[Rfam]
RNA: SAM riboswitch aptamer (S box leader)
Organism: Diplocloster agilis
RNA sequence: CUCUUAUUCAGAGUGGUGGAGGUACAUAGGGCCUGUGAAACCCGGCAACCCCUAGCGAUAGGAAGGUGCCAACCUGAGCGAGUAAUCGAACGAUAAGGG
Numbered sequence: 001c002u003c004u005u006a007u008u009c010a011g012a013g014u015g016g017u018g019g020a021g022g023u024a025c026a027u028a029g030g031g032c033c034u035g036u037g038a039a040a041c042c043c044g045g046c047a048a049c050c051c052c053u054a055g056c057g058a059u060a061g062g063a064a065g066g067u068g069c070c071a072a073c074c075u076g077a078g079c080g081a082g083u084a085a086u087c088g089a090a091c092g093a094u095a096a097g098g099g
Stems, first nucleotide, its partner, number of pairs: 001099008013043001015042003021033003027078001030075001044070004049066002051062004079088003